[Rfam]
RNA sequence: AUCGGUAUGCGCAACUGGCGUAAACGUGGAUAACCACGAGGGAGCGUGUAUGACAAUCGCCGUACGCCUGGGCAAAGUAU
Numbered sequence: 001a002u003c004g005g006u007a008u009g010c011g012c013a014a015c016u017g018g019c020g021u022a023a024a025c026g027u028g029g030a031u032a033a034c035c036a037c038g039a040g041g042g043a044g045c046g047u048g049u050a051u052g053a054c055a056a057u058c059g060c061c062g063u064a065c066g067c068c069u070g071g072g073c074a075a076a077g078u079a080u
Base pairs, nucleotide, nucleotide: 005051006050007049008048009047010046011045012044015041016040017068018067019066020065021064026037027036028035029034057075059073060072061071
RNA: ZMP/ZTP riboswitch aptamer (pfl RNA motif)
Organism: Paenibacillus contaminans